[Rfam]
RNA sequence: AACUGAAAAGGGCAAACUUGUUGAAAAACAAGGACGCAAAGUUAUGGGCCUAAGGUUACAAAACUAUGGCUGCCAGACCACCAGA
Numbered sequence: 001a002a003c004u005g006a007a008a009a010g011g012g013c014a015a016a017c018u019u020g021u022u023g024a025a026a027a028a029c030a031a032g033g034a035c036g037c038a039a040a041g042u043u044a045u046g047g048g049c050c051u052a053a054g055g056u057u058a059c060a061a062a063a064c065u066a067u068g069g070c071u072g073c074c075a076g077a078c079c080a081c082c083a084g085a
Base pairs, nucleotide, nucleotide: 012037013036017032018031019030020029021028022027041078042077043076045075046074047073048070049069050068055064056063057062

The family of this 85-nucleotide RNA from Paenibacillus radicis is "c-di-GMP-I riboswitch aptamer". The base pairs follow the family's consensus structure, which is taken from published work.